Hepatitis C virus (HCV) cis-acting replication element (CRE): a 177-nucleotide RNA.
It is annotated as a cis-regulatory element.
It is one of the family's seed sequences.
RNA sequence: CCACAGCCGGCUGCAAGCCAGCUGGACUUGUCCAGCUGGUUCACUGUCGGUUACAGCGGGGGAGGCGUUUAUCACAGCACGCCUCGUGCCCGGCCCCGCUGGUACAUGUUAUGCCUACUCCUACUUUCCGUAGGGGUAGGCAUCUAUUUCCUCCCAAACCGAUGAAGGUUGGGCUAA
Numbered sequence: 001c002c003a004c005a006g007c008c009g010g011c012u013g014c015a016a017g018c019c020a021g022c023u024g025g026a027c028u029u030g031u032c033c034a035g036c037u038g039g040u041u042c043a044c045u046g047u048c049g050g051u052u053a054c055a056g057c058g059g060g061g062g063a064g065g066c067g068u069u070u071a072u073c074a075c076a077g078c079a080c081g082c083c084u085c086g087u088g089c090c091c092g093g094c095c096c097c098g099c100u101g102g103u104a105c106a107u108g109u110u111a112u113g114c115c116u117a118c119u120c121c122u123a124c125u126u127u128c129c130g131u132a133g134g135g136g137u138a139g140g141c142a143u144c145u146a147u148u149u150c151c152u153c154c155c156a157a158a159c160c161g162a163u164g165a166a167g168g169u170u171g172g173g174c175u176a177a
Base pairs, nucleotide, nucleotide: 006051007050008049009048010047011046013044016041017040018039019038020037021036022035023034024033025032026031055100056099057098058097059096060095061094062085063084064083065082066081067080112142113141114140115139116138117137118136119135120134121133122132123131124130154173155172157170159168